The family of this 105-nucleotide sequence from Melghiribacillus thermohalophilus is "S10-Clostridia ribosomal protein leader". The family's consensus secondary structure is taken from published work. Rfam classes the family as a cis-regulatory leader.
[Rfam]
RNA sequence: UUAAGGCGAUGAUGCGGAAGGUUGCUGACACACCCGGCCCCUUUGCCAUGGCAGGGCAGUCAGGAAAUUUUCGCGGAGAAUGUCUGUUUUUAAAAUGGGCGAAAA
Numbered sequence: 001u002u003a004a005g006g007c008g009a010u011g012a013u014g015c016g017g018a019a020g021g022u023u024g025c026u027g028a029c030a031c032a033c034c035c036g037g038c039c040c041c042u043u044u045g046c047c048a049u050g051g052c053a054g055g056g057c058a059g060u061c062a063g064g065a066a067a068u069u070u071u072c073g074c075g076g077a078g079a080a081u082g083u084c085u086g087u088u089u090u091u092a093a094a095a096u097g098g099g100c101g102a103a104a105a
Stems, first nucleotide, its partner, number of pairs: 014074003018071004025063005081104001083102002088099003